[Rfam]
RNA sequence: UCCGCCGAGAGGCGCUGCAACGGACAACGACGUCCGCCACGCUCGGCCGGGCUCACGACGACUCAAGGGCGCCUCCUGAUG
Dot-bracket structure: .(.(((((............(((((......)))))......))))).)................................
Background: The family of this 81-nucleotide sequence from Actinoplanes derwentensis is "SAH (S-adenosyl-L-homocysteine) riboswitch aptamer". The family's consensus secondary structure is taken from published work. The family has 52 seed sequences and 1,354 matches in Rfam 15.1. The source organism's lineage runs through Bacteria, Bacillati, Actinomycetota, Micromonosporaceae and Actinoplanes.